Shown here is a 72-nucleotide sequence from Ruminococcus sp. AM42-11, a member of the family "HDV ribozyme from F. prausnitzii". Pairs were carried over by alignment from the consensus structure, which is taken from published work. Lineage of the source: Bacteria > Bacillota > Clostridia > Eubacteriales > Ruminococcus. A reference for the family is Webb et al. (2009), "Widespread occurrence of self-cleaving ribozymes", Science. A search with the family's covariance model found it, with a score of 71 bits.
[Rfam]
RNA sequence: GCUGCUCAAGAAUUUGCACACCGCUACGAGGUGAGCAGCAGGCAACGUUCAAUAAACGGCUAAGAGGCAAAA
Numbered sequence: 001g002c003u004g005c006u007c008a009a010g011a012a013u014u015u016g017c018a019c020a021c022c023g024c025u026a027c028g029a030g031g032u033g034a035g036c037a038g039c040a041g042g043c044a045a046c047g048u049u050c051a052a053u054a055a056a057c058g059g060c061u062a063a064g065a066g067g068c069a070a071a072a
Base pairs, nucleotide, nucleotide: 001039002038003037004036005035006034007033020032021031022030046058047057048056049055